[Rfam]
RNA sequence: AUCCCAAUGAAGAUGAAAUGGCCUCUUGAUAGGAAGUGCUGUAUGACACUUGUGAUGCAGUUGCCCUGUCCAGUCCUAAGCUUUUUUUCCUCUUGACCAUGCCUCCCUCAAAUCCUACCAUAGGUUUGAGUUUCCGGGGUGUUGUUCAAAGGGGAAUUUGAAGUUCAAUGGACUUGGAGUUCAUCUGUGUGUGUGAUUUUAAAUGGGUCACUGAGGGCU
Numbered sequence: 001a002u003c004c005c006a007a008u009g010a011a012g013a014u015g016a017a018a019u020g021g022c023c024u025c026u027u028g029a030u031a032g033g034a035a036g037u038g039c040u041g042u043a044u045g046a047c048a049c050u051u052g053u054g055a056u057g058c059a060g061u062u063g064c065c066c067u068g069u070c071c072a073g074u075c076c077u078a079a080g081c082u083u084u085u086u087u088u089c090c091u092c093u094u095g096a097c098c099a100u101g102c103c104u105c106c107c108u109c110a111a112a113u114c115c116u117a118c119c120a121u122a123g124g125u126u127u128g129a130g131u132u133u134c135c136g137g138g139g140u141g142u143u144g145u146u147c148a149a150a151g152g153g154g155a156a157u158u159u160g161a162a163g164u165u166c167a168a169u170g171g172a173c174u175u176g177g178a179g180u181u182c183a184u185c186u187g188u189g190u191g192u193g194u195g196a197u198u199u200u201a202a203a204u205g206g207g208u209c210a211c212u213g214a215g216g217g218c219u
Stems, first nucleotide, its partner, number of pairs: 001219001003217003076171001077167001079165004085156007095147002098144002101142002
Record summary
A member of the RNA family "Small nucleolar RNA Z112" from Musa troglodytarum, 219 nucleotides long. For this family Rfam cites "A novel gene organization: intronic snoRNA gene clusters from Oryza sativa" (Liang et al., Nucleic Acids Res, 2002). A search with the family's covariance model found it, with a score of 62 bits. By type it is a C/D-box small nucleolar RNA.